RNA sequence: GUCGGCCCCUCAUGCGGUGUCAUCCUGUGAACUCCCCCAGGACCGGAAGGUAGCAAGGGUAAGCGGGCUCUGUCAGGUGCAUGAGGGGUCUUUACU
Dot-bracket structure: ...((((((((((((..((.((.(((((.....(((.....(((....))).....)))...)))))...)).)).)..)))))))))))......

The record is a 96-nucleotide sequence from Arthrobacter sp. CAU 1506, which matches "Bacterial small signal recognition particle RNA" in Rfam. Gene Ontology terms of the family: SRP-dependent cotranslational protein targeting to membrane, signal sequence recognition and signal recognition particle, plasma membrane targeting. The family is grouped with related families in Rfam's "SRP clan". The literature on the family includes a 2002 paper in Nucleic Acids Res by Regalia et al., "Prediction of signal recognition particle RNA genes". The base pairs follow the family's consensus structure, which is taken from published work. It scores 72 bits against the family's covariance model. The signal recognition particle (SRP) is a universally conserved ribonucleoprotein involved in the co-translational targeting of proteins to membranes.